[Rfam]
RNA sequence: GCGCUCGCUGGGGCGCGGUCCUCUCCGUGUGGUCCCGACCUGCCUUCCGUGAGCAAGAGAAGCAGAACUGGUUUGGGGGUGUCCUGUCCGAGUGGGUGCAGGUCACCACGGUUCCCAGGACGACA
Numbered sequence: 001g002c003g004c005u006c007g008c009u010g011g012g013g014c015g016c017g018g019u020c021c022u023c024u025c026c027g028u029g030u031g032g033u034c035c036c037g038a039c040c041u042g043c044c045u046u047c048c049g050u051g052a053g054c055a056a057g058a059g060a061a062g063c064a065g066a067a068c069u070g071g072u073u074u075g076g077g078g079g080u081g082u083c084c085u086g087u088c089c090g091a092g093u094g095g096g097u098g099c100a101g102g103u104c105a106c107c108a109c110g111g112u113u114c115c116c117a118g119g120a121c122g123a124c125a
Base pairs, nucleotide, nucleotide: 003054004053005052006051007050008049012044013043014042017040018039019038020037025032026031065121068118069117070116071115073111074110075109078107079106080105081104083102084101085100086097087096088095089094
Rfam assigns this 125-nucleotide RNA sequence from Ochotona princeps to the family "Small Cajal body specific RNA 23". A reference for the family is Darzacq et al. (2002), "Cajal body-specific small nuclear RNAs: a novel class of 2'-O-methylation and pseudouridylation guide RNAs", EMBO J. NCBI's taxonomy places the organism under Eukaryota, Metazoa, Euteleostomi, Ochotonidae, Ochotona. Its family is annotated with Cajal body, nucleolus and RNA processing in the Gene Ontology. From the family's description: scaRNAs are a specific class of small nuclear RNAs which localise to the Cajal bodies and guide the modification of RNA polymerase II transcribed spliceosomal RNAs U1, U2, U4, U5 and U12. ACA11 belongs to the H/ACA box class of guide RNAs as it has the predicted hairpin-hinge-hairpin-tail structure,the conserved H/ACA-box motifs and is found associated with GAR1. H/ACA snRNAs are predicted to guide the modification of uridines to pseudouridines in substrate RNAs however, no target RNA has been identified for scaRNA ACA11. By type it is a small Cajal body RNA.